RNA sequence: CUUCGCGUCGCAAAAAGGCCUUUAAAGAACCUGGGAAAGAACCGGACCAAACCCCACCCCACCCCGUCUUGACCUGCAUCACUCGCGCGAGUGAACUCGGGCAACUGGGCUGGAUUCGGGCCGGGUUCGCUGGCAUAUGCUCGCCGCGACAACACCACAGAACGUGACGGCCCCCGGCGAGACGCCAAUCUCCACCGAGGGCCUGACCAACACGGAAGAAGCAGACUUCCUG
Numbered sequence: 001c002u003u004c005g006c007g008u009c010g011c012a013a014a015a016a017g018g019c020c021u022u023u024a025a026a027g028a029a030c031c032u033g034g035g036a037a038a039g040a041a042c043c044g045g046a047c048c049a050a051a052c053c054c055c056a057c058c059c060c061a062c063c064c065c066g067u068c069u070u071g072a073c074c075u076g077c078a079u080c081a082c083u084c085g086c087g088c089g090a091g092u093g094a095a096c097u098c099g100g101g102c103a104a105c106u107g108g109g110c111u112g113g114a115u116u117c118g119g120g121c122c123g124g125g126u127u128c129g130c131u132g133g134c135a136u137a138u139g140c141u142c143g144c145c146g147c148g149a150c151a152a153c154a155c156c157a158c159a160g161a162a163c164g165u166g167a168c169g170g171c172c173c174c175c176g177g178c179g180a181g182a183c184g185c186c187a188a189u190c191u192c193c194a195c196c197g198a199g200g201g202c203c204u205g206a207c208c209a210a211c212a213c214g215g216a217a218g219a220a221g222c223a224g225a226c227u228u229c230c231u232g
Stems, first nucleotide, its partner, number of pairs: 007064001079094006109145001111143003169203005175197003179192004214230005

A member of the RNA family "Streptomyces sRNA 4677", 232 nucleotides long.
A search with the family's covariance model found it, with a score of 118 bits.
The base pairs follow the family's consensus structure.
It is annotated as a small RNA.
Rfam describes the family as follows. Located in the intergenic region between anti-sigma factor SCO4677 gene and a putative regulatory protein gene SCO4676. scr4677 expression requires the SCO4677 activity and scr4677 sRNA itself seem to affect the levels of the SCO4676-associated transcripts.